Annotation
MIR2617 microRNA precursor family: an 85-nucleotide RNA sequence from Medicago truncatula. Gene Ontology terms of the family: miRNA-mediated post-transcriptional gene silencing and RISC complex. The family's consensus secondary structure was predicted with RNAalifold.
RNA sequence: AAGUAGUGUGGCAUGCCCGUUGUUGUUGAACUCUGAUAUUUUAUUUAUUAUUUAAUUGUUUGGGUUAACGGGGUGUUACAAUAAU
Numbered sequence: 001a002a003g004u005a006g007u008g009u010g011g012c013a014u015g016c017c018c019g020u021u022g023u024u025g026u027u028g029a030a031c032u033c034u035g036a037u038a039u040u041u042u043a044u045u046u047a048u049u050a051u052u053u054a055a056u057u058g059u060u061u062g063g064g065u066u067a068a069c070g071g072g073g074u075g076u077u078a079c080a081a082u083a084a085u
Base pairs, nucleotide, nucleotide: 002085004083005082007080008079009078010077011076012075013074014073016072017071018070019069020068021067